[Rfam]
Shown here is a 186-nucleotide RNA from Idiomarina sp. MD25a, a member of the family "6S / SsrS RNA". Lineage of the source: Bacteria > Pseudomonadati > Gammaproteobacteria > Idiomarinaceae > Idiomarina. A search with the family's covariance model found it, with a score of 93 bits. The family's RNA type in Rfam is non-coding RNA gene. Pairs were carried over by alignment from the consensus structure, which is taken from published work. E. coli 6S RNA was the first non coding RNA to be sequenced, but its function was unknown until recently.
RNA sequence: GGUUUCCUGGGUCGUACGCUAAUAGACGUAUGUCCCUGAGCCGAUGCUUUUACUUAAGGGGAUCACUGGCCCGUCAUGAGCAAGCCCGGCACGCACCGGGAAGCCUACGAUGGAUCCCACUUGCUCCCCGCCUUGAACCAAUGGGUUCAAGGGCUACCGUCAGAUGGCGGCGUCACCGGGAAACCA
Numbered sequence: 001g002g003u004u005u006c007c008u009g010g011g012u013c014g015u016a017c018g019c020u021a022a023u024a025g026a027c028g029u030a031u032g033u034c035c036c037u038g039a040g041c042c043g044a045u046g047c048u049u050u051u052a053c054u055u056a057a058g059g060g061g062a063u064c065a066c067u068g069g070c071c072c073g074u075c076a077u078g079a080g081c082a083a084g085c086c087c088g089g090c091a092c093g094c095a096c097c098g099g100g101a102a103g104c105c106u107a108c109g110a111u112g113g114a115u116c117c118c119a120c121u122u123g124c125u126c127c128c129c130g131c132c133u134u135g136a137a138c139c140a141a142u143g144g145g146u147u148c149a150a151g152g153g154c155u156a157c158c159g160u161c162a163g164a165u166g167g168c169g170g171c172g173u174c175a176c177c178g179g180g181a182a183a184c185c186a
Stems, first nucleotide, its partner, number of pairs: 002184009013172003017169003032154004037149006058129003062125001064123002068116002071113004080104002085100005